[Rfam]
RNA: permuted transfer-messenger RNA
Organism: Ketogulonicigenium robustum
RNA sequence: GGGCAUAAACGCGCUCGGAAUAAGCGGAUCGGACCCGGGGGCGGUACCCGGCGGCUCCACCAUAUCCUUAUUGGGGGAUCAUGGGGCCGAAACAGGAUCGACGAACGUGUAAAGGGGAUGGCUUUGUCCCGGUGAGGUACCACCGUUAUCGGUCCGUAUUGUACAGUUGCCAAUAACAACCGUGCUCCGGCAAUGGCUCUGGCUGCUUAA
Numbered sequence: 001g002g003g004c005a006u007a008a009a010c011g012c013g014c015u016c017g018g019a020a021u022a023a024g025c026g027g028a029u030c031g032g033a034c035c036c037g038g039g040g041g042c043g044g045u046a047c048c049c050g051g052c053g054g055c056u057c058c059a060c061c062a063u064a065u066c067c068u069u070a071u072u073g074g075g076g077g078a079u080c081a082u083g084g085g086g087c088c089g090a091a092a093c094a095g096g097a098u099c100g101a102c103g104a105a106c107g108u109g110u111a112a113a114g115g116g117g118a119u120g121g122c123u124u125u126g127u128c129c130c131g132g133u134g135a136g137g138u139a140c141c142a143c144c145g146u147u148a149u150c151g152g153u154c155c156g157u158a159u160u161g162u163a164c165a166g167u168u169g170c171c172a173a174u175a176a177c178a179a180c181c182g183u184g185c186u187c188c189g190g191c192a193a194u195g196g197c198u199c200u201g202g203c204u205g206c207u208u209a210a
Stems, first nucleotide, its partner, number of pairs: 001129005014117003025107002029104003035051005052089007130145004